mir-160 microRNA precursor family: an 86-nucleotide RNA sequence from Castanea mollissima. It scores 69 bits against the family's covariance model. Its family is annotated with RISC complex and miRNA-mediated post-transcriptional gene silencing in the Gene Ontology. The family has 7 seed sequences and 1,502 matches in Rfam 15.1. NCBI's taxonomy places the organism under Eukaryota, Streptophyta, Embryophyta, Mesangiospermae, Castanea. For this family Rfam cites "Prediction of plant microRNA targets" (Rhoades et al., Cell, 2002).

RNA sequence: GUAUGCCUGGCUCCCUGUAUGCCAUAUGCAAAGCCUAUCAGAAUGUUGGUGGCCUUCGUGUAUGGCGUGCAAGGAGCCAUGCAUCU
Numbered sequence: 001g002u003a004u005g006c007c008u009g010g011c012u013c014c015c016u017g018u019a020u021g022c023c024a025u026a027u028g029c030a031a032a033g034c035c036u037a038u039c040a041g042a043a044u045g046u047u048g049g050u051g052g053c054c055u056u057c058g059u060g061u062a063u064g065g066c067g068u069g070c071a072a073g074g075a076g077c078c079a080u081g082c083a084u085c086u
Stems, first nucleotide, its partner, number of pairs: 001086001003084004008079007016071009027060003